[Rfam]
RNA sequence: GUCCAAAAUUUCCUUUUCCAAGCACGUAUCUGAUUGCUCUGUGUGGAAAAUGACUGUUGCUGAGUGUUUUGGGU
Number, nucleotide and partner (000 for none) at each position: 001g074002u073003c072004c071005a070006a069007a000008a067009u066010u000011u000012c000013c000014u000015u000016u000017u000018c000019c000020a000021a000022g000023c000024a000025c000026g000027u000028a000029u000030c000031u000032g000033a000034u000035u000036g000037c000038u000039c000040u000041g000042u000043g000044u000045g000046g000047a000048a000049a000050a000051u000052g000053a000054c000055u000056g000057u000058u000059g000060c000061u000062g000063a000064g000065u000066g009067u008068u000069u006070u005071g004072g003073g002074u001
Rfam assigns this 74-nucleotide RNA sequence from Jacana jacana to the family "Small nucleolar RNA SNORD121A". The family's RNA type in Rfam is C/D-box small nucleolar RNA. The family has 26 seed sequences and 881 matches in Rfam 15.1. Its family is annotated with RNA processing and nucleolus in the Gene Ontology. On this family, see Yang et al., Nucleic Acids Res 2006: "snoSeeker: an advanced computational package for screening of guide and orphan snoRNA genes in the human genome". Lineage of the source: Eukaryota > Sarcopterygii > Sauropsida > Jacanidae > Jacana. The base pairs follow the family's consensus structure, which was predicted with WAR.